[Rfam]
RNA: Bacterial RNase P class A
Organism: Mitsuokella sp. oral taxon 131
RNA sequence: UAAGUAGUCAAGACAAUCGCGGCAGCGGUUACGCUGAUGAGGAAAGUCCGGGCUCCACAGGGCAGUGUGCUGGAUAACGUCCAGCGAGGGUGACCUUAGGGAAAGUGCCAUAGAGAUUUAGACCGCCUGCUUUGCAGGCAAGGGUGGAAAGGUGCGGCAAGAGCGCACCAGCAGUCAGGUGACUGGCUGGCUUUGGCAAACCCCACACGGAGCAAGACCAAAUAGGGAAGGGAUGAUGCGGCCCGCGGAACCUUCCGGGUAGCGUCGCUUGAGCCGGCAGGCAACUGUCGUGCCUAGAUAAAUGAUUGUCGCCGCACAAGCGGAACAAAACUCGGCUUACUGACUGCUUAUGAC
Numbered sequence: 001u002a003a004g005u006a007g008u009c010a011a012g013a014c015a016a017u018c019g020c021g022g023c024a025g026c027g028g029u030u031a032c033g034c035u036g037a038u039g040a041g042g043a044a045a046g047u048c049c050g051g052g053c054u055c056c057a058c059a060g061g062g063c064a065g066u067g068u069g070c071u072g073g074a075u076a077a078c079g080u081c082c083a084g085c086g087a088g089g090g091u092g093a094c095c096u097u098a099g100g101g102a103a104a105g106u107g108c109c110a111u112a113g114a115g116a117u118u119u120a121g122a123c124c125g126c127c128u129g130c131u132u133u134g135c136a137g138g139c140a141a142g143g144g145u146g147g148a149a150a151g152g153u154g155c156g157g158c159a160a161g162a163g164c165g166c167a168c169c170a171g172c173a174g175u176c177a178g179g180u181g182a183c184u185g186g187c188u189g190g191c192u193u194u195g196g197c198a199a200a201c202c203c204c205a206c207a208c209g210g211a212g213c214a215a216g217a218c219c220a221a222a223u224a225g226g227g228a229a230g231g232g233a234u235g236a237u238g239c240g241g242c243c244c245g246c247g248g249a250a251c252c253u254u255c256c257g258g259g260u261a262g263c264g265u266c267g268c269u270u271g272a273g274c275c276g277g278c279a280g281g282c283a284a285c286u287g288u289c290g291u292g293c294c295u296a297g298a299u300a301a302a303u304g305a306u307u308g309u310c311g312c313c314g315c316a317c318a319a320g321c322g323g324a325a326c327a328a329a330a331c332u333c334g335g336c337u338u339a340c341u342g343a344c345u346g347c348u349u350a351u352g353a354c
Stems, first nucleotide, its partner, number of pairs: 001350010012310007020039002023036005044338003048335005053212004060244004065208005070084005085099001086097004100203002105201002107197003123143002125139006151169006170192001172189007216266003219262001226256006237247003273293002275290006